[Rfam]
RNA sequence: GGUCAGUGAUGAGUGCUGGCAUGUAUUAUCUGAUCUAGAGUUGAUGUCUAUCACCACUUUAGCUCUAGAAUUACUCUGAGACCCA
Numbered sequence: 001g002g003u004c005a006g007u008g009a010u011g012a013g014u015g016c017u018g019g020c021a022u023g024u025a026u027u028a029u030c031u032g033a034u035c036u037a038g039a040g041u042u043g044a045u046g047u048c049u050a051u052c053a054c055c056a057c058u059u060u061a062g063c064u065c066u067a068g069a070a071u072u073a074c075u076c077u078g079a080g081a082c083c084c085a
Base pairs, nucleotide, nucleotide: 001083002082003081004080
A member of the RNA family "Small nucleolar RNA SNORD45" from Nyctibius bracteatus, 85 nucleotides long. Its family is annotated with RNA processing and nucleolus in the Gene Ontology. The match comes from Rfam's covariance-model search (66 bits). The literature on the family includes a 2001 paper in EMBO J by Huttenhofer et al., "RNomics: an experimental approach that identifies 201 candidates for novel, small, non-messenger RNAs in mouse". The base pairs follow the family's consensus structure, which was predicted with PFOLD.